[Rfam]
RNA sequence: AACCAUUUGUCCCGCGUCCCACGGCGUUUUAAAAAAGUCCCUAUUUUUGGAAAGUUUAAAACGCCGUGGGACGCGGGACAAAUGGUUAA
Numbered sequence: 001a002a003c004c005a006u007u008u009g010u011c012c013c014g015c016g017u018c019c020c021a022c023g024g025c026g027u028u029u030u031a032a033a034a035a036a037g038u039c040c041c042u043a044u045u046u047u048u049g050g051a052a053a054g055u056u057u058a059a060a061a062c063g064c065c066g067u068g069g070g071a072c073g074c075g076g077g078a079c080a081a082a083u084g085g086u087u088a089a
Base pairs, nucleotide, nucleotide: 001087002086003085004084005083006082007081008080009079010078011077012076013075014074015073016072017071018070019069020068021067022066023065024064025063026062027061028060029059030058031057032056
A member of the RNA family "mir-9261 microRNA precursor family" from Cnephaeus nilssonii, 89 nucleotides long. Lineage of the source: Eukaryota > Gnathostomata > Boreoeutheria > Vespertilionidae > Cnephaeus. Its family is annotated with miRNA-mediated post-transcriptional gene silencing and RISC complex in the Gene Ontology.